[Rfam]
RNA sequence: UCGUCUUUAGACCGGCGUAGACCGGUGCUAUCUCGGCAGUAAUUUUCAUUGCUGUCAUUAAGAAGUCGUUAUUGCAUUUAGCUUGA
Numbered sequence: 001u002c003g004u005c006u007u008u009a010g011a012c013c014g015g016c017g018u019a020g021a022c023c024g025g026u027g028c029u030a031u032c033u034c035g036g037c038a039g040u041a042a043u044u045u046u047c048a049u050u051g052c053u054g055u056c057a058u059u060a061a062g063a064a065g066u067c068g069u070u071a072u073u074g075c076a077u078u079u080a081g082c083u084u085g086a
Stems, first nucleotide, its partner, number of pairs: 011026005037054007